[Rfam]
RNA sequence: AGAGGUCACAAGUUUGAGGGCAUAGCAGAAGUGCUCACAGCAUGGCCAUGUCAGAUUUAAUAAAAUCUGUUAAUUCUGCU
Numbered sequence: 001a002g003a004g005g006u007c008a009c010a011a012g013u014u015u016g017a018g019g020g021c022a023u024a025g026c027a028g029a030a031g032u033g034c035u036c037a038c039a040g041c042a043u044g045g046c047c048a049u050g051u052c053a054g055a056u057u058u059a060a061u062a063a064a065a066u067c068u069g070u071u072a073a074u075u076c077u078g079c080u
Stems, first nucleotide, its partner, number of pairs: 013048001018047002021044001024080007031043003052069007
The family of this 80-nucleotide RNA sequence from Crocodylus porosus is "Mammalian CPEB3 ribozyme". The mammalian CPEB3 ribozyme is a self cleaving RNA located in the second intron of the CPEB3 gene which belongs to a family of genes regulating messenger RNA polyadenylation. This ribozyme is highly conserved and found only in mammals. The CPEB3 ribozyme is structurally and biochemically related to the human hepatitis delta virus (HDV) ribozyme and the HDV ribozyme is proposed to have arisen from the human transcriptome. There is currently only one other known self cleaving ribozyme in mammals, the CoTC motif. The base pairs follow the family's consensus structure, which is taken from published work. A search with the family's covariance model found it, with a score of 46 bits. The source organism's lineage runs through Eukaryota, Opisthokonta, Chordata, Crocodylidae and Crocodylus.